Rfam assigns this 64-nucleotide RNA sequence from Azoarcus taiwanensis to the family "Betaproteobacteria toxic small RNA". Rfam describes the family as follows. Overexpression in amino aid rich medium attenuates growth, suggesting role in repressing amino acid intake and metabolism. For this family Rfam cites "A vast collection of microbial genes that are toxic to bacteria" (Kimelman et al., Genome Res, 2012). The source organism's lineage runs through Bacteria, Pseudomonadati, Betaproteobacteria, Rhodocyclales and Azoarcus.
RNA sequence: CGUCUCCUCCACCCUCCUCCUUUGGUGUGGAUUCCGCCCGAGCCGAGUGCUCGGGCUUUUUUUU
Numbered sequence: 001c002g003u004c005u006c007c008u009c010c011a012c013c014c015u016c017c018u019c020c021u022u023u024g025g026u027g028u029g030g031a032u033u034c035c036g037c038c039c040g041a042g043c044c045g046a047g048u049g050c051u052c053g054g055g056c057u058u059u060u061u062u063u064u
Base pairs, nucleotide, nucleotide: 008031009030010029011028012027013025014024036056037055038054039053040052041051042050